[Rfam]
RNA sequence: CCGCCCAGCAGGCGACGUUGCGGGCGCUGGGCGCCAGGAGAGGUUCCCGGAGCCGACCUUCCGGCUGGCCGCUCUGUGACUGCUUCCCGGCUCUGCCCUCUUGGCUGAAGUCCCCGCUGCCGGGCGCGGGCCUCAGGUAACGGUGGU
Numbered sequence: 001c002c003g004c005c006c007a008g009c010a011g012g013c014g015a016c017g018u019u020g021c022g023g024g025c026g027c028u029g030g031g032c033g034c035c036a037g038g039a040g041a042g043g044u045u046c047c048c049g050g051a052g053c054c055g056a057c058c059u060u061c062c063g064g065c066u067g068g069c070c071g072c073u074c075u076g077u078g079a080c081u082g083c084u085u086c087c088c089g090g091c092u093c094u095g096c097c098c099u100c101u102u103g104g105c106u107g108a109a110g111u112c113c114c115c116g117c118u119g120c121c122g123g124g125c126g127c128g129g130g131c132c133u134c135a136g137g138u139a140a141c142g143g144u145g146g147u
Stems, first nucleotide, its partner, number of pairs: 013017001034090002037087003041084002045079002048076005054071002057068002103132004110127002113124004